Rfam assigns this 87-nucleotide RNA from Acinetobacter defluvii to the family "t44 RNA". It is annotated as a small RNA. The match comes from Rfam's covariance-model search (66 bits).
Nucleotides: 087
Stems, first nucleotide, its partner, number of pairs: 023077008035067004040063004048059004
Number, partner (000 for none) and nucleotide at each position: 001000u002000a003000g004000g005000g006000u007000a008000a009000u010000u011000u012000a013000a014000a015000a016000a017000u018000c019000c020000g021000c022000a023077c024076a025075u026074a027073u028072g029071u030070c031000g032000a033000c034000a035067c036066a037065u038064u039000a040063c041062u042061c043060u044000g045000g046000g047000u048059g049058c050057c051056c052000g053000u054000u055000a056051g057050g058049g059048u060043g061042g062041a063040g064038a065037a066036u067035g068000c069000g070030g071029a072028c073027a074026u075025a076024u077023g078000g079000a080000g081000g082000c083000c084000u085000a086000a087000c
Rfam's curators write: This family consists of a number of bacterial RNA genes of between 135 and 170 bases in length. Taxonomically the source falls in Acinetobacter (Bacteria, Pseudomonadota, Gammaproteobacteria, Moraxellales).